[Rfam]
RNA sequence: GCCAAAUGAUGUAAGACAGAUGGCAUAGCACUCCGUGCAAAGAUGACUUACAUCUAUCACCCAAUACUGAUGGCU
Numbered sequence: 001g002c003c004a005a006a007u008g009a010u011g012u013a014a015g016a017c018a019g020a021u022g023g024c025a026u027a028g029c030a031c032u033c034c035g036u037g038c039a040a041a042g043a044u045g046a047c048u049u050a051c052a053u054c055u056a057u058c059a060c061c062c063a064a065u066a067c068u069g070a071u072g073g074c075u
Base pairs, nucleotide, nucleotide: 001074002073003072004071028038029037030036031035
Dot-bracket structure: ((((.......................((((...))))................................)))).